A member of the RNA family "U12 minor spliceosomal RNA" from Castor canadensis, 147 nucleotides long. By type it is a spliceosomal small nuclear RNA. The source organism's lineage runs through Eukaryota, Eumetazoa, Bilateria, Mammalia and Castor. The family has 62 seed sequences and 2,106 matches in Rfam 15.1. Gene Ontology terms of the family: pre-mRNA branch point binding, mRNA branch site recognition and U12 snRNP. The base pairs follow the family's consensus structure. A search with the family's covariance model found it, with a score of 79 bits. For this family Rfam cites "The divergent U12-type spliceosome is required for pre-mRNA splicing and is essential for development in Drosophila" (Otake et al., Mol Cell, 2002). The family is grouped with related families in Rfam's "U2 clan".
[Rfam]
RNA sequence: AUACCUUAAACUUAUGAGUAAUGGAAAUAACGAUUCAGGGUGAUGCUCAAAUCCUCACUACUGAUGUAGCGUGAAUUUUUGAGUGGAAGAUUACCCCUAAGGUGAACCACCUACUUUGCAGGAUGCCUGGGUGUAGUCAUCUGCCCG
Numbered sequence: 001a002u003a004c005c006u007u008a009a010a011c012u013u014a015u016g017a018g019u020a021a022u023g024g025a026a027a028u029a030a031c032g033a034u035u036c037a038g039g040g041u042g043a044u045g046c047u048c049a050a051a052u053c054c055u056c057a058c059u060a061c062u063g064a065u066g067u068a069g070c071g072u073g074a075a076u077u078u079u080u081g082a083g084u085g086g087a088a089g090a091u092u093a094c095c096c097c098u099a100a101g102g103u104g105a106a107c108c109a110c111c112u113a114c115u116u117u118g119c120a121g122g123a124u125g126c127c128u129g130g131g132u133g134u135a136g137u138c139a140u141c142u143g144c145c146c147g
Base pairs, nucleotide, nucleotide: 004023006021007020008019032053033052034051035050038047039046055069057067058066084147085146086145088142089141090140091139093137094136097131098130100128101127102126103125104124107121110118